Rfam assigns this 260-nucleotide part of an RNA from Coprothermobacter proteolyticus to the family "Bacterial large subunit ribosomal RNA".
[Rfam]
RNA sequence: GGAGUUCUGAGGGGAGCUCUUCCUAGUACGAGAGGACCGGAAGGGACCAGGCACUGGUGUACCAGUUGUACCGCCAGGUGCAGAGCUGGGUAGCCACCCUGGGAGGAAUAAGCGCUGAAAGCAUCUAAGCGCGAAGUCCAUCCCAAGAUAAGAACUCCCACAGAGAAGAUCUGGUAAGGGCCCGGGAAGACUACCCGGUAGAUAGGCUGGAAGUGGAAGCCCAGUAAUGGGUGUAGCUGACCAGUACUAAUAGCCCGAGG
Numbered sequence: 001g002g003a004g005u006u007c008u009g010a011g012g013g014g015a016g017c018u019c020u021u022c023c024u025a026g027u028a029c030g031a032g033a034g035g036a037c038c039g040g041a042a043g044g045g046a047c048c049a050g051g052c053a054c055u056g057g058u059g060u061a062c063c064a065g066u067u068g069u070a071c072c073g074c075c076a077g078g079u080g081c082a083g084a085g086c087u088g089g090g091u092a093g094c095c096a097c098c099c100u101g102g103g104a105g106g107a108a109u110a111a112g113c114g115c116u117g118a119a120a121g122c123a124u125c126u127a128a129g130c131g132c133g134a135a136g137u138c139c140a141u142c143c144c145a146a147g148a149u150a151a152g153a154a155c156u157c158c159c160a161c162a163g164a165g166a167a168g169a170u171c172u173g174g175u176a177a178g179g180g181c182c183c184g185g186g187a188a189g190a191c192u193a194c195c196c197g198g199u200a201g202a203u204a205g206g207c208u209g210g211a212a213g214u215g216g217a218a219g220c221c222c223a224g225u226a227a228u229g230g231g232u233g234u235a236g237c238u239g240a241c242c243a244g245u246a247c248u249a250a251u252a253g254c255c256c257g258a259g260g
Stems, first nucleotide, its partner, number of pairs: 001158008011144004017045007047102005055096003062089005067082006105139003112132005161173003175258001178256004182198005203249003206245005212238002219232005
Taxonomically the source falls in Coprothermobacter proteolyticus (Bacteria, Coprothermobacterota, Coprothermobacteria, Coprothermobacter). The family has 102 seed sequences and 51,934 matches in Rfam 15.1.